[Rfam]
This 75-nucleotide RNA sequence from Amycolatopsis cihanbeyliensis belongs to the Rfam family "6C RNA". The family's RNA type in Rfam is cis-regulatory element. A reference for the family is Weinberg et al. (2007), "Identification of 22 candidate structured RNAs in bacteria using the CMfinder comparative genomics pipeline", Nucleic Acids Res.
RNA sequence: ACCGGUUCAGUCCGACCCCCCGGGGCUGAACCCUCGGCGGCCCCCGCUCCUCCCCCCUGGCGGGGGCCGCCCCUC
Numbered sequence: 001a002c003c004g005g006u007u008c009a010g011u012c013c014g015a016c017c018c019c020c021c022g023g024g025g026c027u028g029a030a031c032c033c034u035c036g037g038c039g040g041c042c043c044c045c046g047c048u049c050c051u052c053c054c055c056c057c058u059g060g061c062g063g064g065g066g067c068c069g070c071c072c073c074u075c
Stems, first nucleotide, its partner, number of pairs: 004032010036071013
Rfam links the family to the GO term sporulation. The base pairs follow the family's consensus structure, which is taken from published work.